[Rfam]
RNA sequence: AAUACCGCGAGGUCUUGUGGGGAGGAAGCCGGACGCAAAACUGCGAGCUGAUGAACAAGAACAUCAUAUGAGGCGUAGGCUGGAGGCGAGUUGGCACAAGACAACGAAGCCGCGUGAUUUAACGGCCACCGUAAAUGAGCCCUUGCGCAGGGACAGUUCAUGCG
Dot-bracket structure: ((.(((....))).)).............((...((....(((((((..(...........(.((((.....(((..(((((..(((..((((........))))...)))...........)))))..)))..))))))..)).))))).....))...))..
Numbered sequence: 001a002a003u004a005c006c007g008c009g010a011g012g013u014c015u016u017g018u019g020g021g022g023a024g025g026a027a028g029c030c031g032g033a034c035g036c037a038a039a040a041c042u043g044c045g046a047g048c049u050g051a052u053g054a055a056c057a058a059g060a061a062c063a064u065c066a067u068a069u070g071a072g073g074c075g076u077a078g079g080c081u082g083g084a085g086g087c088g089a090g091u092u093g094g095c096a097c098a099a100g101a102c103a104a105c106g107a108a109g110c111c112g113c114g115u116g117a118u119u120u121a122a123c124g125g126c127c128a129c130c131g132u133a134a135a136u137g138a139g140c141c142c143u144u145g146c147g148c149a150g151g152g153a154c155a156g157u158u159c160a161u162g163c164g
Stems, first nucleotide, its partner, number of pairs: 001016002004013003030162002035157002041150005046144002050140001062139001064138004073132003078127005085111003090105004
Shown here is a 164-nucleotide RNA from Leucothrix pacifica, a member of the family "Group II catalytic intron D1-D4-3". From the family's description: Group II introns are found in rRNA, tRNA and mRNA of organelles in fungi, plants and protists, and also in mRNA in bacteria. The organism belongs to Leucothrix, within Bacteria. A reference for the family is Lehmann and Schmidt (2003), "Group II introns: structure and catalytic versatility of large natural ribozymes", Crit Rev Biochem Mol Biol. The base pairs follow the family's consensus structure. Gene Ontology term of the family: Group II intron splicing.